[Rfam]
RNA sequence: CCGCGCUAUGCGGGGAGUUAGCGGUGCCCUGAACCUGCAAUCCGCUGUAGCAGGGCAGAAGCCUGUUUUGAGGCCUUCAUUUGUGGUGUUUGCCCUUAGUAAGUGGUGUUGACAAGUGGGUCCGACGCAACAAAAAUUCAUGAACCCCGUCAGGUCCGGAAGGAAGCAGCGGUAAGUGGACACUUUUGUGUGCCGUCGGGUAGCCUGCUUCGAGCUAACUGCUUUGGUUACAACCGGAAGUGAUUGUCGAAGACAGGGCGCGG
Numbered sequence: 001c002c003g004c005g006c007u008a009u010g011c012g013g014g015g016a017g018u019u020a021g022c023g024g025u026g027c028c029c030u031g032a033a034c035c036u037g038c039a040a041u042c043c044g045c046u047g048u049a050g051c052a053g054g055g056c057a058g059a060a061g062c063c064u065g066u067u068u069u070g071a072g073g074c075c076u077u078c079a080u081u082u083g084u085g086g087u088g089u090u091u092g093c094c095c096u097u098a099g100u101a102a103g104u105g106g107u108g109u110u111g112a113c114a115a116g117u118g119g120g121u122c123c124g125a126c127g128c129a130a131c132a133a134a135a136a137u138u139c140a141u142g143a144a145c146c147c148c149g150u151c152a153g154g155u156c157c158g159g160a161a162g163g164a165a166g167c168a169g170c171g172g173u174a175a176g177u178g179g180a181c182a183c184u185u186u187u188g189u190g191u192g193c194c195g196u197c198g199g200g201u202a203g204c205c206u207g208c209u210u211c212g213a214g215c216u217a218a219c220u221g222c223u224u225u226g227g228u229u230a231c232a233a234c235c236g237g238a239a240g241u242g243a244u245u246g247u248c249g250a251a252g253a254c255a256g257g258g259c260g261c262g263g
Stems, first nucleotide, its partner, number of pairs: 001263007009057003012030004017025003034054005063256007072248003078242005084236004095226001098223003103219002105216003114210008122199006128190002131188005137180005147172004155164003

This 263-nucleotide RNA sequence from a Peptococcaceae bacterium belongs to the Rfam family "Bacterial large signal recognition particle RNA". Rfam describes the family as follows. The signal recognition particle (SRP) is a universally conserved ribonucleoprotein involved in the co-translational targeting of proteins to membranes. The family's RNA type in Rfam is non-coding RNA gene.